Annotation: The record is a 147-nucleotide RNA sequence from Tenacibaculum todarodis, which matches "Flavo-1 RNA" in Rfam. Pairs were carried over by alignment from the consensus structure, which is taken from published work.
[Rfam]
RNA sequence: AAUACGCCCGCGUUAGGGAUUGAAGCGGCAUCCUUUUUUAUACCAAAAUAACUUAAACGGCUUAUCUAAACAAUAAAUUGCUUCUAAAAACAAAGAUGCUGAACUAAAUUCAGCAUAAAAAAGAUAUAGCGGAAAGCCCGACCUUGG
Numbered sequence: 001a002a003u004a005c006g007c008c009c010g011c012g013u014u015a016g017g018g019a020u021u022g023a024a025g026c027g028g029c030a031u032c033c034u035u036u037u038u039u040a041u042a043c044c045a046a047a048a049u050a051a052c053u054u055a056a057a058c059g060g061c062u063u064a065u066c067u068a069a070a071c072a073a074u075a076a077a078u079u080g081c082u083u084c085u086a087a088a089a090a091c092a093a094a095g096a097u098g099c100u101g102a103a104c105u106a107a108a109u110u111c112a113g114c115a116u117a118a119a120a121a122a123g124a125u126a127u128a129g130c131g132g133a134a135a136g137c138c139c140g141a142c143c144u145u146g147g
Stems, first nucleotide, its partner, number of pairs: 016139003020135002025130002030125003036120006043113001
Record summary:
Taxonomically the source falls in Tenacibaculum (Bacteria, Pseudomonadati, Bacteroidota, Flavobacteriia). The match comes from Rfam's covariance-model search (51 bits). Rfam classes the family as a small RNA.